The family of this 102-nucleotide RNA from Clostridium sp. cel8 is "Purine riboswitch aptamer". Lineage of the source: Bacteria > Bacillati > Bacillota > Clostridiaceae > Clostridium. Clan: Purine riboswitches. A search with the family's covariance model found it, with a score of 87 bits.

RNA sequence: AAAUUUUUAUAGACAGAAACUCGUAUAUACUCGGUAAUAUGGUCCGAAAGUUUCUACCUGUCAACCUAAAAUUGACAGACUACGAGGUAAUAUUUGAAUUUU
Numbered sequence: 001a002a003a004u005u006u007u008u009a010u011a012g013a014c015a016g017a018a019a020c021u022c023g024u025a026u027a028u029a030c031u032c033g034g035u036a037a038u039a040u041g042g043u044c045c046g047a048a049a050g051u052u053u054c055u056a057c058c059u060g061u062c063a064a065c066c067u068a069a070a071a072u073u074g075a076c077a078g079a080c081u082a083c084g085a086g087g088u089a090a091u092a093u094u095u096g097a098a099u100u101u102u
Base pairs, nucleotide, nucleotide: 018088020086021085022084023083024082025081031047032046033045034044058078059077060076061075062074063073064072